[Rfam]
RNA sequence: GAGGGUCGGUCGGCGGUCGCCGGAGGUCUUCGGGCCUCCGGAGGAAAGUCCGGGCUCCACAGGGCAGGGCGCCGGGUAACACCCGGAGGGGGUAACCCCUGGAAAGUGCCACAGAAAAGAGACCGCCUCGGGCCUUGGCCCGGGGUAAGGGUGAAACGGUGGGGUAAGAGCCCACCGCUCCCUCCCGCAAGGGAGGGAGGCACGGCAAACCCCGCCCGGAGAAAGGCCGCAUAGGGGGGCGCUUGAGGGUGGCCCGCCCGAAGCCCCCGGGUAGGCCGCUAGAGCGGCCGGGCAACCGGCCGCCCAGAGGAAUGACCGCCGCCCGGAAGGCCGUAAGGCCUUCGGGUUACAGAACCCGGCUUAUGACCGGCCCUCUCCC
Number, nucleotide and partner (000 for none) at each position: 001g375002a374003g373004g372005g371006u370007c369008g368009g367010u366011c000012g320013g319014c318015g317016g316017u315018c314019g000020c041021c040022g039023g038024a037025g036026g035027u034028c033029u000030u000031c000032g000033g028034g027035c026036c025037u024038c023039c022040g021041g020042a000043g000044g000045a000046a362047a361048g360049u000050c359051c358052g357053g356054g355055c221056u220057c219058c218059a000060c000061a000062g255063g254064g253065c252066a000067g217068g216069g215070c214071g213072c086073c085074g084075g083076g082077u000078a000079a000080c000081a000082c076083c075084c074085g073086g072087a100088g099089g098090g097091g096092g000093u000094a000095a000096c091097c090098c089099c088100u087101g212102g211103a000104a000105a000106g210107u209108g206109c205110c204111a000112c000113a000114g000115a000116a000117a000118a000119g000120a000121g000122a000123c150124c149125g146126c145127c144128u143129c142130g141131g140132g139133c138134c000135u000136u000137g000138g133139c132140c131141c130142g129143g128144g127145g126146u125147a000148a000149g124150g123151g000152u000153g000154a000155a000156a000157c000158g176159g175160u174161g173162g172163g171164g000165u000166a000167a000168g000169a000170g000171c163172c162173c161174a160175c159176c158177g201178c199179u198180c197181c196182c195183u000184c193185c192186c191187g000188c000189a000190a000191g186192g185193g184194a000195g182196g181197g180198a179199g178200g000201c177202a000203c000204g110205g109206c108207a000208a000209a107210c106211c102212c101213c071214g070215c069216c068217c067218g058219g057220a056221g055222a000223a000224a000225g277226g276227c275228c274229g000230c000231a000232u000233a000234g000235g268236g267237g266238g265239g264240c263241g000242c000243u000244u000245g000246a000247g259248g258249g257250u256251g000252g065253c064254c063255c062256g250257c249258c248259c247260g000261a000262a000263g240264c239265c238266c237267c236268c235269g000270g000271g000272u000273a000274g228275g227276c226277c225278g000279c000280u000281a000282g000283a000284g303285c302286g301287g300288c299289c298290g297291g296292g000293c000294a000295a000296c291297c290298g289299g288300c287301c286302g285303c284304c000305c000306a000307g000308a000309g000310g000311a000312a000313u000314g018315a017316c016317c015318g014319c013320c012321g000322c000323c000324c000325g000326g000327a000328a000329g000330g000331c000332c000333g000334u000335a000336a000337g000338g000339c000340c000341u000342u000343c000344g000345g000346g000347u000348u000349a000350c000351a000352g000353a000354a000355c054356c053357c052358g051359g050360c048361u047362u046363a000364u000365g000366a010367c009368c008369g007370g006371c005372c004373c003374u002375c001376u000377c000378c000379c000